[Rfam]
RNA sequence: AGGGCAGUAUCAUCACCGAACUGCACCUGUUACCGGCAUGUCUUGAAAUUUUAUAAGUUCUGCCUUGAUCUUGAACAAGACAGGGACGGAGGA
Numbered sequence: 001a002g003g004g005c006a007g008u009a010u011c012a013u014c015a016c017c018g019a020a021c022u023g024c025a026c027c028u029g030u031u032a033c034c035g036g037c038a039u040g041u042c043u044u045g046a047a048a049u050u051u052u053a054u055a056a057g058u059u060c061u062g063c064c065u066u067g068a069u070c071u072u073g074a075a076c077a078a079g080a081c082a083g084g085g086a087c088g089g090a091g092g093a
Stems, first nucleotide, its partner, number of pairs: 001028003004024005010019002060089003063085005069080003
RNA: pan motif
Organism: Sporosarcina sp. Te-1